[Rfam]
RNA sequence: GUAGAUGCUCAUUCUAUUAUCUUAUGUUCGCCUUACGGCCUCAUAAACCCAGGAAUGAUGCAGAGCCAAUUUUAGGGUGCCUAUUGUCCACCAGAACGAUGAAAGCGAUGGCUUCAUCACACUUCGGGCAUAACGUUGAGUGAGGCACCUCCCCUGUUGUUCUAGACCUGAUUGCUUUUUUAAUACACUUGCCAAUAUGGCAAGUGUUUUUUU
Numbered sequence: 001g002u003a004g005a006u007g008c009u010c011a012u013u014c015u016a017u018u019a020u021c022u023u024a025u026g027u028u029c030g031c032c033u034u035a036c037g038g039c040c041u042c043a044u045a046a047a048c049c050c051a052g053g054a055a056u057g058a059u060g061c062a063g064a065g066c067c068a069a070u071u072u073u074a075g076g077g078u079g080c081c082u083a084u085u086g087u088c089c090a091c092c093a094g095a096a097c098g099a100u101g102a103a104a105g106c107g108a109u110g111g112c113u114u115c116a117u118c119a120c121a122c123u124u125c126g127g128g129c130a131u132a133a134c135g136u137u138g139a140g141u142g143a144g145g146c147a148c149c150u151c152c153c154c155u156g157u158u159g160u161u162c163u164a165g166a167c168c169u170g171a172u173u174g175c176u177u178u179u180u181u182a183a184u185a186c187a188c189u190u191g192c193c194a195a196u197a198u199g200g201c202a203a204g205u206g207u208u209u210u211u212u213u
Stems, first nucleotide, its partner, number of pairs: 001066002006062003009058004015053001017052001020045001028038001030036001076149007086129004098118004159167003185207010
Dot-bracket structure: ((...(((((((..(.(..(.......(.(.....).)......)......)).)))).)))..)).........(((((((...((((........((((.............)))).......)))).............))))))).........(((...))).................((((((((((...))))))))))......

The family of this 213-nucleotide RNA from Chania multitudinisentens is "GlmZ RNA activator of glmS mRNA". Its Rfam clan is "Glm clan". Rfam describes the family as follows. This RNA was discovered in E. coli during a large scale screen. The sraJ gene was expressed in early logarithmic phase, but its level decreased with cell growth. Pairs were carried over by alignment from the consensus structure, which is taken from published work. NCBI's taxonomy places the organism under Bacteria, Pseudomonadati, Gammaproteobacteria, Enterobacterales, Chania multitudinisentens.